[Rfam]
RNA sequence: ACUCAGCAUCAAGAGUCGGAUUUCCGACACCAACCUGCUCCGCGCAAGGUGGUGCCUCCAGCUGGAGGGAUGUGGCCUGACCGGCAAUAGCGGAUAUCAGC
Numbered sequence: 001a002c003u004c005a006g007c008a009u010c011a012a013g014a015g016u017c018g019g020a021u022u023u024c025c026g027a028c029a030c031c032a033a034c035c036u037g038c039u040c041c042g043c044g045c046a047a048g049g050u051g052g053u054g055c056c057u058c059c060a061g062c063u064g065g066a067g068g069g070a071u072g073u074g075g076c077c078u079g080a081c082c083g084g085c086a087a088u089a090g091c092g093g094a095u096a097u098c099a100g101c
Stems, first nucleotide, its partner, number of pairs: 006073005015028005029053003034049003037045002075085003

Description: This 101-nucleotide RNA from Altericroceibacterium endophyticum belongs to the Rfam family "SAM-I/IV (S-adenosyl methionine) riboswitch aptamer". Rfam links the family to the GO terms S-adenosylmethionine metabolic process and regulation of gene expression. On this family, see Trausch et al., PNAS 2014: "Structural basis for diversity in the SAM clan of riboswitches". It scores 46 bits against the family's covariance model. Pairs were carried over by alignment from the consensus structure, which is taken from published work.